[Rfam]
The family of this 359-nucleotide sequence from Selenomonas sputigena is "Bacterial RNase P class A".
RNA sequence: CUGAGCAUCUGGGCAAUCGCGGGCAUUUCGCCUGAGGAAAGUCCGGGCUUCAGAGGGCAGCGUGCUGGAUAACGUCCAGCGGGGGCAACCCUAGGGAAAGUGCCAUAGAGACUUAGACCGCCGCAUGGCAUAAGCCGUGUUGGCAAGGGUGGAAAGGUGCGGUAAGAGCGCACCAGCAGUCAGGUGACUGGCUGGCUAGGCAAACCCCACGCGAAGCAAGACCGAAUAGGGAAGGGAUGAGGCGGCCCGCCGACCUUCCGGGUAGCGUCGCUUGAGCCGUCCGGCAACGGGCGGUCCAGAUAAAUGAUUGCCACUGCCGUAAGGCAGCACAGAACCCGGCUUAUAGGACGCCCAGCGAG
Number, nucleotide and partner (000 for none) at each position: 001c355002u354003g353004a000005g351006c350007a000008u348009c347010u346011g344012g312013g311014c310015a309016a308017u307018c306019g000020c034021g033022g032023g031024c030025a000026u000027u000028u000029c000030g024031c023032c022033u021034g020035a000036g000037g000038a000039a342040a341041g340042u000043c339044c338045g337046g336047g335048c216049u215050u214051c213052a000053g000054a000055g248056g247057g246058c245059a000060g212061c211062g210063u209064g208065c079066u078067g077068g076069a075070u000071a000072a000073c000074g000075u069076c068077c067078a066079g065080c094081g092082g091083g090084g089085g000086c000087a000088a000089c084090c083091c082092u081093a000094g080095g207096g206097a000098a000099a000100g205101u204102g201103c200104c199105a000106u000107a000108g000109a000110g000111a000112c000113u000114u000115a000116g000117a000118c148119c147120g144121c143122c142123g000124c139125a138126u137127g136128g135129c134130a000131u000132a000133a000134g129135c128136c127137g126138u125139g124140u000141u000142g122143g121144c120145a000146a000147g119148g118149g000150u000151g000152g000153a000154a000155a000156g174157g173158u172159g171160c170161g169162g000163u000164a000165a000166g000167a000168g000169c161170g160171c159172a158173c157174c156175a000176g196177c194178a193179g192180u191181c190182a189183g188184g000185u000186g000187a000188c183189u182190g181191g180192c179193u178194g177195g000196c176197u000198a000199g104200g103201c102202a000203a000204a101205c100206c096207c095208c064209a063210c062211g061212c060213g051214a050215a049216g048217c000218a000219a000220g269221a268222c267223c265224g000225a000226a000227u000228a000229g000230g259231g258232a257233a256234g255235g254236g000237a000238u000239g000240a000241g251242g250243c249244g000245g058246c057247c056248c055249g243250c242251c241252g000253a000254c235255c234256u233257u232258c231259c230260g000261g000262g000263u000264a000265g223266c000267g222268u221269c220270g000271c000272u000273u000274g000275a000276g295277c294278c293279g292280u291281c290282c289283g288284g000285c000286a000287a000288c283289g282290g281291g280292c279293g278294g277295u276296c000297c000298a000299g000300a000301u000302a000303a000304a000305u000306g018307a017308u016309u015310g014311c013312c012313a000314c000315u000316g000317c000318c000319g000320u000321a000322a000323g000324g000325c000326a000327g000328c000329a000330c000331a000332g000333a000334a000335c047336c046337c045338g044339g043340c041341u040342u039343a000344u011345a000346g010347g009348a008349c000350g006351c005352c000353c003354a002355g001356c000357g000358a000359g000

Overview: It scores 293 bits against the family's covariance model. Ribonuclease P (RNase P) is a ubiquitous endoribonuclease, found in archaea, bacteria and eukarya as well as chloroplasts and mitochondria.